[Rfam]
RNA sequence: GGACCACUUCUUUUGAAGUCGAGGCCAUACGGACAGCCGGGUCCGCUGCCGA
Number, nucleotide and partner (000 for none) at each position: 001g044002g043003a042004c041005c040006a019007c018008u017009u016010c015011u000012u000013u000014u000015g010016a009017a008018g007019u006020c000021g000022a000023g000024g000025c000026c000027a000028u000029a000030c000031g000032g000033a000034c000035a000036g000037c000038c000039g000040g005041g004042u003043c002044c001045g000046c000047u000048g000049c000050c000051g000052a000
The record is a 52-nucleotide sequence from [Ruminococcus] lactaris, which matches "Streptococcus sRNA SpF59 (ldcC RNA)" in Rfam. The sequence is in the family's curated seed alignment. The organism belongs to [Ruminococcus] lactaris, within Bacteria. A reference for the family is Mann et al. (2012), "Control of virulence by small RNAs in Streptococcus pneumoniae", PLoS Pathog. The base pairs follow the family's consensus structure, which was predicted with mfold. Rfam classes the family as a small RNA.